Rfam assigns this 74-nucleotide RNA sequence from Eptatretus burgeri to the family "Mammalian CPEB3 ribozyme". Lineage of the source: Eukaryota > Vertebrata > Myxinidae > Eptatretinae > Eptatretus.

RNA sequence: AAGUCAUGUAUGGGGGCCAUCGAAGGAGCGUUCACGUUGCGGUCCCUGUCAGGCUUCUGCCUGUGAAUCCUCCU
Numbered sequence: 001a002a003g004u005c006a007u008g009u010a011u012g013g014g015g016g017c018c019a020u021c022g023a024a025g026g027a028g029c030g031u032u033c034a035c036g037u038u039g040c041g042g043u044c045c046c047u048g049u050c051a052g053g054c055u056u057c058u059g060c061c062u063g064u065g066a067a068u069c070c071u072c073c074u
Stems, first nucleotide, its partner, number of pairs: 013046006022073001024071004028040003050063005